[Rfam]
Shown here is a 146-nucleotide RNA from Dasypus novemcinctus, a member of the family "Small nucleolar RNA SNORA12".
It is one of the family's seed sequences.
Rfam classes the family as an H/ACA-box small nucleolar RNA.

RNA sequence: AGUUGUGGUGGUUUUCUUUCUGGUGCAUUCAUUAAGUUUUCAAAUGGGCCUGAUUCUGCCACAUAUAAUAUAGAGGAACUGGCAAAGGCUUGAUGAAAAAGAGAUUUUUUGCUAGCCUUUCACAUACCAGUUUGGUUCCCAUAUGU
Numbered sequence: 001a002g003u004u005g006u007g008g009u010g011g012u013u014u015u016c017u018u019u020c021u022g023g024u025g026c027a028u029u030c031a032u033u034a035a036g037u038u039u040u041c042a043a044a045u046g047g048g049c050c051u052g053a054u055u056c057u058g059c060c061a062c063a064u065a066u067a068a069u070a071u072a073g074a075g076g077a078a079c080u081g082g083c084a085a086a087g088g089c090u091u092g093a094u095g096a097a098a099a100a101g102a103g104a105u106u107u108u109u110u111g112c113u114a115g116c117c118u119u120u121c122a123c124a125u126a127c128c129a130g131u132u133u134g135g136u137u138c139c140c141a142u143a144u145g146u
Base pairs, nucleotide, nucleotide: 005062006061007060008059009058010057011056022050023049024048026046027045028044029043075139076138077137078136079135080134081090082089083088108130109129111127

Rfam's curators write: U108 belongs to the H/ACA family of snoRNAs. The sequence is predicted to guide the pseudouridylation of the U372 residue in the 28S rRNA subunit. However it has not been reported as a pseudouridylation site.